[Rfam]
RNA: c-di-AMP riboswitch aptamer (ydaO/yuaA leader)
RNA sequence: CAACAUAGAAGGCCGAAGUUUCUUAUGAAGCACGGGGGACCCAAUCUUUGGGGUGAAGCCGCAAUUAGCGGCCGGGUGAUUACUCUUUGAUCCGAAUCCGACAGCUAACCUCGCAGGCCGCAAAAAGGAGAUGU
Numbered sequence: 001c002a003a004c005a006u007a008g009a010a011g012g013c014c015g016a017a018g019u020u021u022c023u024u025a026u027g028a029a030g031c032a033c034g035g036g037g038g039a040c041c042c043a044a045u046c047u048u049u050g051g052g053g054u055g056a057a058g059c060c061g062c063a064a065u066u067a068g069c070g071g072c073c074g075g076g077u078g079a080u081u082a083c084u085c086u087u088u089g090a091u092c093c094g095a096a097u098c099c100g101a102c103a104g105c106u107a108a109c110c111u112c113g114c115a116g117g118c119c120g121c122a123a124a125a126a127g128g129a130g131a132u133g134u
Stems, first nucleotide, its partner, number of pairs: 011119004018031003033113005042050002051099003059071004074093004